[Rfam]
RNA: pan motif
RNA sequence: AGGAAGGUAUCCCUACGGAACCUUACCGGCAUGACCUGAUUUUAUUUUUCUGUCGAAGCUCUGAUCCGCGAACGGACAGAGACUAAGG
Numbered sequence: 001a002g003g004a005a006g007g008u009a010u011c012c013c014u015a016c017g018g019a020a021c022c023u024u025a026c027c028g029g030c031a032u033g034a035c036c037u038g039a040u041u042u043u044a045u046u047u048u049u050c051u052g053u054c055g056a057a058g059c060u061c062u063g064a065u066c067c068g069c070g071a072a073c074g075g076a077c078a079g080a081g082a083c084u085a086a087g088g
Base pairs, nucleotide, nucleotide: 002027003026004024005023006022007021008020010019011018057084058083059081060080061079062078063077065076066075067074